[Rfam]
About this RNA: Rfam assigns this 201-nucleotide sequence from Salmonella enterica to the family "isrO Hfq binding RNA". The family's consensus secondary structure was predicted with RNAalifold. It scores 173 bits against the family's covariance model. The organism belongs to Salmonella enterica subsp. arizonae, within Bacteria.

Nucleotides: 201
Base pairs, nucleotide, nucleotide: 001172002171003170006167007166015165016164017163018128019127020126021125022124023123024122026120027119028118030116032107033106034105035104036103037102038101039100040099041098042090043089045088046087047086049084051082052081058078059077060076061075062074063073146159147158149157151155173198174197175196176195177194178193179192181190182189
Number, partner (000 for none) and nucleotide at each position: 001172a002171u003170g004000c005000c006167c007166a008000a009000u010000c011000c012000a013000u014000u015165g016164a017163c018128g019127c020126c021125g022124g023123a024122a025000a026120g027119g028118g029000c030116c031000a032107g033106c034105g035104u036103g037102g038101a039100u040099g041098a042090u043089g044000a045088u046087g047086c048000c049084g050000u051082u052081g053000a054000u055000a056000u057000c058078c059077g060076a061075u062074a063073u064000u065000c066000c067000a068000g069000c070000a071000u072000a073063a074062u075061a076060u077059c078058g079000a080000c081052u082051a083000a084049c085000u086047g087046c088045a089043c090042a091000a092000u093000g094000a095000u096000a097000c098041u099040c100039g101038u102037c103036u104035g105034c106033g107032u108000u109000c110000u111000g112000u113000c114000a115000g116030g117000a118028c119027u120026u121000g122024u123023u124022u125021u126020g127019g128018u129000a130000a131000u132000g133000c134000c135000u136000u137000u138000c139000u140000g141000u142000c143000u144000c145000a146159u147158a148000u149157g150000g151155g152000c153000u154000a155151c156000g157149c158147u159146g160000a161000u162000c163017g164016u165015c166007u167006g168000a169000c170003u171002a172001u173198a174197u175196g176195g177194c178193c179192c180000a181190g182189c183000c184000a185000g186000a187000u188000u189182g190181c191000c192179g193178g194177g195176u196175c197174a198173u199000u200000u201000u